[Rfam]
RNA sequence: CACCGAUAAAGGCAAAUCUAGUGAAAGCUAGAGACGCAAAGCUAAAGGGCCUUCCUUAGAAAUAAGAUGGUAGCCAGUUACCGAA
Numbered sequence: 001c002a003c004c005g006a007u008a009a010a011g012g013c014a015a016a017u018c019u020a021g022u023g024a025a026a027g028c029u030a031g032a033g034a035c036g037c038a039a040a041g042c043u044a045a046a047g048g049g050c051c052u053u054c055c056u057u058a059g060a061a062a063u064a065a066g067a068u069g070g071u072a073g074c075c076a077g078u079u080a081c082c083g084a085a
Stems, first nucleotide, its partner, number of pairs: 012037002017032006040079004047075002049071003056065003
Overview
Shown here is an 85-nucleotide sequence from Alkaliphilus sp. B6464, a member of the family "c-di-GMP-I riboswitch aptamer". The match comes from Rfam's covariance-model search (75 bits). Pairs were carried over by alignment from the consensus structure, which is taken from published work.